[Rfam]
RNA sequence: GAGCACUUGAUACUAACCAAGCCAUCCAUAUCCCAGGCCUUGUGCAGAGGUCUGUGGUAUGCCAUGUGAUUGCUGGGUCUGAAAAGUGCUACAUUAAAACAAGCCAUGAAGUGUUUAAGCUCAGUGUGUAAAGGAAGACACUGGGUUAUAACUCAGAGGCACAGCA
Numbered sequence: 001g002a003g004c005a006c007u008u009g010a011u012a013c014u015a016a017c018c019a020a021g022c023c024a025u026c027c028a029u030a031u032c033c034c035a036g037g038c039c040u041u042g043u044g045c046a047g048a049g050g051u052c053u054g055u056g057g058u059a060u061g062c063c064a065u066g067u068g069a070u071u072g073c074u075g076g077g078u079c080u081g082a083a084a085a086g087u088g089c090u091a092c093a094u095u096a097a098a099a100c101a102a103g104c105c106a107u108g109a110a111g112u113g114u115u116u117a118a119g120c121u122c123a124g125u126g127u128g129u130a131a132a133g134g135a136a137g138a139c140a141c142u143g144g145g146u147u148a149u150a151a152c153u154c155a156g157a158g159g160c161a162c163a164g165c166a
Stems, first nucleotide, its partner, number of pairs: 003089006016078003020074003024070003027061004032057002034054001036052006103160003124139002127136001129134001141156006
RNA: Small Cajal body specific RNA 1